[Rfam]
RNA: Eukaryotic large subunit ribosomal RNA, nucleotides 3481 to 3889
Organism: Lachnellula suecica
RNA sequence: CGGCUCUUCCUAUCAUACCGAAGCAGAAUUCGGUAAGCGUUGGAUUGUUCACCCACUAGAAACCAUAUUGGUGGGAAAAGAUGCCUGCGGGCACACUAGUCGCACCGUCUACAAUUGUGGUAAGCGGUCGGCAAGACAACCUGGUUACGGGGAAGCCUACAGGCCUUACAGCUUAUGGCGAUCUCGAGCAGAGCAUGAAUCAUGCCUGUGUAACGCACGGAAAGGUGUCGGUUAGCUGAAAAGCUAGCUUAAGGGACGUGCUAAUCCCACCCGAAAGGGUGAUUUAGGUAGGAGUCCACAACUCCGAAGCCUGGGUAGCUGCAGCCUAAGGGUAAAUCUUUAGGUCAAGCUGGUAUAAUAUGAAUAGGGAACGUGAGCUGGGUUUAGACCGUCGUGAGACAGGUUAGUU
Numbered sequence: 001c002g003g004c005u006c007u008u009c010c011u012a013u014c015a016u017a018c019c020g021a022a023g024c025a026g027a028a029u030u031c032g033g034u035a036a037g038c039g040u041u042g043g044a045u046u047g048u049u050c051a052c053c054c055a056c057u058a059g060a061a062a063c064c065a066u067a068u069u070g071g072u073g074g075g076a077a078a079a080g081a082u083g084c085c086u087g088c089g090g091g092c093a094c095a096c097u098a099g100u101c102g103c104a105c106c107g108u109c110u111a112c113a114a115u116u117g118u119g120g121u122a123a124g125c126g127g128u129c130g131g132c133a134a135g136a137c138a139a140c141c142u143g144g145u146u147a148c149g150g151g152g153a154a155g156c157c158u159a160c161a162g163g164c165c166u167u168a169c170a171g172c173u174u175a176u177g178g179c180g181a182u183c184u185c186g187a188g189c190a191g192a193g194c195a196u197g198a199a200u201c202a203u204g205c206c207u208g209u210g211u212a213a214c215g216c217a218c219g220g221a222a223a224g225g226u227g228u229c230g231g232u233u234a235g236c237u238g239a240a241a242a243g244c245u246a247g248c249u250u251a252a253g254g255g256a257c258g259u260g261c262u263a264a265u266c267c268c269a270c271c272c273g274a275a276a277g278g279g280u281g282a283u284u285u286a287g288g289u290a291g292g293a294g295u296c297c298a299c300a301a302c303u304c305c306g307a308a309g310c311c312u313g314g315g316u317a318g319c320u321g322c323a324g325c326c327u328a329a330g331g332g333u334a335a336a337u338c339u340u341u342a343g344g345u346c347a348a349g350c351u352g353g354u355a356u357a358a359u360a361u362g363a364a365u366a367g368g369g370a371a372c373g374u375g376a377g378c379u380g381g382g383u384u385u386a387g388a389c390c391g392u393c394g395u396g397a398g399a400c401a402g403g404u405u406a407g408u409u
Stems, first nucleotide, its partner, number of pairs: 001381001002379004006373001007370005014039001017034006041360001044359005387405004391400003